[Rfam]
RNA: Plant small nucleolar RNA R71
RNA sequence: UUCCCAUGGUGCAGGCAGGCUUGGAUGUAAUCCUAUAGCCUUUCCCAUGCCUCAGGGAUAGAUUCCAUUGAAUUCUGCUGGAAGUUUGAAAUUUUCCCUCUUAGGGCA
Numbered sequence: 001u002u003c004c005c006a007u008g009g010u011g012c013a014g015g016c017a018g019g020c021u022u023g024g025a026u027g028u029a030a031u032c033c034u035a036u037a038g039c040c041u042u043u044c045c046c047a048u049g050c051c052u053c054a055g056g057g058a059u060a061g062a063u064u065c066c067a068u069u070g071a072a073u074u075c076u077g078c079u080g081g082a083a084g085u086u087u088g089a090a091a092u093u094u095u096c097c098c099u100c101u102u103a104g105g106g107c108a
Base pairs, nucleotide, nucleotide: 001108003106004105006102057074058073